[Rfam]
A member of the RNA family "chrB-b RNA", 47 nucleotides long.
It is annotated as a cis-regulatory element.
The family's consensus secondary structure is taken from published work.
RNA sequence: UCGGGCUUGCAGGCGCCCGGUGAGACGGAUCUUCCGUCCAAGUCUGC
Numbered sequence: 001u002c003g004g005g006c007u008u009g010c011a012g013g014c015g016c017c018c019g020g021u022g023a024g025a026c027g028g029a030u031c032u033u034c035c036g037u038c039c040a041a042g043u044c045u046g047c
Base pairs, nucleotide, nucleotide: 001020002019003018004017005016006015009047010046011045012044013043024038025037026036027035028034